[Rfam]
RNA sequence: GGUCAUGAGUGCCAGCACGACAAGCCCCGGCUCGCUGGCCGGCAACCCUCCACUCGCGGUGGGGUGCCCCGGGUGAGGACCUGGCGGGCGCAUCGUGAGGUGGGCCCGCAAGCGCGGGAG
Numbered sequence: 001g002g003u004c005a006u007g008a009g010u011g012c013c014a015g016c017a018c019g020a021c022a023a024g025c026c027c028c029g030g031c032u033c034g035c036u037g038g039c040c041g042g043c044a045a046c047c048c049u050c051c052a053c054u055c056g057c058g059g060u061g062g063g064g065u066g067c068c069c070c071g072g073g074u075g076a077g078g079a080c081c082u083g084g085c086g087g088g089c090g091c092a093u094c095g096u097g098a099g100g101u102g103g104g105c106c107c108g109c110a111a112g113c114g115c116g117g118g119a120g
Stems, first nucleotide, its partner, number of pairs: 001081004009040001011039006023032002041068003046064003050059002084109006091102003
RNA: SAM (S-adenosyl methionine) riboswitch aptamer
Organism: Nostocoides sp. F2B08